Rfam assigns this 88-nucleotide RNA from Vibrio xiamenensis to the family "Selenocysteine transfer RNA". The source organism's lineage runs through Bacteria, Pseudomonadati, Gammaproteobacteria, Vibrionaceae and Vibrio. Pairs were carried over by alignment from the consensus structure, which is taken from published work.
[Rfam]
RNA sequence: GGAAGUUGAUGAGGUCUGGUGGCCUUCUCGGUCUUCAAAACCGAUGUGAGCCUAAUUGGCUCUGGCAGGUUCGAUUCCUGCCUCUUCC
Number, nucleotide and partner (000 for none) at each position: 001g088002g087003a086004a085005g084006u000007u000008g081009a000010u000011g026012a025013g024014g023015u022016c021017u000018g000019g000020u000021g016022g015023c014024c013025u012026u011027c000028u044029c043030g042031g041032u040033c000034u000035u000036c000037a000038a000039a000040a032041c031042c030043g029044a028045u000046g000047u000048g062049a061050g060051c059052c000053u000054a000055a000056u000057u000058g000059g051060c050061u049062c048063u000064g000065g000066c080067a079068g078069g077070u000071u000072c000073g000074a000075u000076u000077c069078c068079u067080g066081c008082c000083u000084c005085u004086u003087c002088c001